RNA sequence: ACACAGAAGGGAGGUGGUUACCGAAAUGUACGGAAACCGGACGCGUGAGGUGGCUGCGGGCUAAAGCGCCCGCUGUCGCACGCACCCAGUGCGGUGCCCGGCGGAGUCGCCGGCGCCAAUCCCAAGCAGUCACCCGACCCGCGGGCUCGCCGGUACGUCCGGCCGGCUUCUCCCCACUGCAGGGGGAGAGACCCGAGCCCGCGGGUCGUCUGCG
Numbered sequence: 001a002c003a004c005a006g007a008a009g010g011g012a013g014g015u016g017g018u019u020a021c022c023g024a025a026a027u028g029u030a031c032g033g034a035a036a037c038c039g040g041a042c043g044c045g046u047g048a049g050g051u052g053g054c055u056g057c058g059g060g061c062u063a064a065a066g067c068g069c070c071c072g073c074u075g076u077c078g079c080a081c082g083c084a085c086c087c088a089g090u091g092c093g094g095u096g097c098c099c100g101g102c103g104g105a106g107u108c109g110c111c112g113g114c115g116c117c118a119a120u121c122c123c124a125a126g127c128a129g130u131c132a133c134c135c136g137a138c139c140c141g142c143g144g145g146c147u148c149g150c151c152g153g154u155a156c157g158u159c160c161g162g163c164c165g166g167c168u169u170c171u172c173c174c175c176a177c178u179g180c181a182g183g184g185g186g187a188g189a190g191a192c193c194c195g196a197g198c199c200c201g202c203g204g205g206u207c208g209u210c211u212g213c214g
Base pairs, nucleotide, nucleotide: 014057015056016055017054018053059117060116061115066114067113135208136207137206138205139204140203141202142201143200144199145198146197147196149167150166151165152164153163154162
RNA: Actinobacteria sRNA Ms_IGR-5